RNA sequence: UCAUCACCACCAUCAUCCAGAAUAAGCUUCAGGCGGUUAUCUGCUGGAAGCUUGUAAGACGCUUCCGGUGGUAGAAUAUAACAAUAUUGCAAACCCCCGGAAGGUAAUCCUCCCGGGGGUUUUUUAGU
Numbered sequence: 001u002c003a004u005c006a007c008c009a010c011c012a013u014c015a016u017c018c019a020g021a022a023u024a025a026g027c028u029u030c031a032g033g034c035g036g037u038u039a040u041c042u043g044c045u046g047g048a049a050g051c052u053u054g055u056a057a058g059a060c061g062c063u064u065c066c067g068g069u070g071g072u073a074g075a076a077u078a079u080a081a082c083a084a085u086a087u088u089g090c091a092a093a094c095c096c097c098c099g100g101a102a103g104g105u106a107a108u109c110c111u112c113c114c115g116g117g118g119g120u121u122u123u124u125u126a127g128u
Base pairs, nucleotide, nucleotide: 008043009042012037013036014035017033018032020030021029044068045067046066047065048064049063050062051061089124091122092121093120094119095118096117097116098115099114100113102111103110
The record is a 128-nucleotide sequence from Agarivorans albus, which matches "Histidine operon leader" in Rfam. Rfam describes the family as follows. At least 6 amino acid operons are known to be regulated by attenuation. In each a leader sequence of 150-200 bp is found upstream of the first gene in the operon. The family's consensus secondary structure is taken from published work. The organism belongs to Agarivorans albus, within Bacteria. A reference for the family is Kolter and Yanofsky (1982), "Attenuation in amino acid biosynthetic operons", Annu Rev Genet. Gene Ontology term of the family: histidine biosynthetic process. A search with the family's covariance model found it, with a score of 76 bits.